[Rfam]
RNA sequence: AAAUGAAUUAAGAGGCAACUCUUAACUGACCAGCUGGGGAAAAACCGAGAGGUUCAAGCCCAGAGGGCAGAAAGCUCUGCAAAGUAGCGCUAAAAUUGCAGGGUGGACGGCAUGGCGGUAGCGCAUACAACGACGUGCCAA
Numbered sequence: 001a002a003a004u005g006a007a008u009u010a011a012g013a014g015g016c017a018a019c020u021c022u023u024a025a026c027u028g029a030c031c032a033g034c035u036g037g038g039g040a041a042a043a044a045c046c047g048a049g050a051g052g053u054u055c056a057a058g059c060c061c062a063g064a065g066g067g068c069a070g071a072a073a074g075c076u077c078u079g080c081a082a083a084g085u086a087g088c089g090c091u092a093a094a095a096u097u098g099c100a101g102g103g104u105g106g107a108c109g110g111c112a113u114g115g116c117g118g119u120a121g122c123g124c125a126u127a128c129a130a131c132g133a134c135g136u137g138c139c140a141a
Base pairs, nucleotide, nucleotide: 008025009024010023011022012021013020014019026070027069028068030067031066034063035062036061037060038059043054044053045052046051074104075103076102077101078100079099080098081097087124088123089122090121091120109139110138111137112136113135114134116132117131
Dot-bracket structure: .......(((((((....)))))))(((.((..(((((....((((....))))....)))))..)))))...((((((((.....[[[[[.....))))))))....((((((.((..]]]]]......)).))))))..
Description: Shown here is a 141-nucleotide RNA, a member of the family "IMES-2 RNA motif". Pairs were carried over by alignment from the consensus structure, which is taken from published work. On this family, see Weinberg et al., Nature 2009: "Exceptional structured noncoding RNAs revealed by bacterial metagenome analysis".